[Rfam]
RNA sequence: GUGGACGGACCGCCGAAUCCUGCCGCCGCCCACGGACACGAAUCGACGGCAGGAGCGGGGGACCCACUUUUUCCGGCGCGCCGCGCGCGCCUCGGGGUGAAGCCGUGCGUGAAACGGCCGGGCCACUCUGCCCGAACCCGACAGCUCACCUCGCAGGCGUGGAGGAUCAUCCAU
Numbered sequence: 001g002u003g004g005a006c007g008g009a010c011c012g013c014c015g016a017a018u019c020c021u022g023c024c025g026c027c028g029c030c031c032a033c034g035g036a037c038a039c040g041a042a043u044c045g046a047c048g049g050c051a052g053g054a055g056c057g058g059g060g061g062a063c064c065c066a067c068u069u070u071u072u073c074c075g076g077c078g079c080g081c082c083g084c085g086c087g088c089g090c091c092u093c094g095g096g097g098u099g100a101a102g103c104c105g106u107g108c109g110u111g112a113a114a115c116g117g118c119c120g121g122g123c124c125a126c127u128c129u130g131c132c133c134g135a136a137c138c139c140g141a142c143a144g145c146u147c148a149c150c151u152c153g154c155a156g157g158c159g160u161g162g163a164g165g166a167u168c169a170u171c172c173a174u
Base pairs, nucleotide, nucleotide: 011159012158013157014156018054019053020052021051022050023049024048025047055154056153057152058151059150060149065094095139096138097137103117104116105115106114120133121132122131123130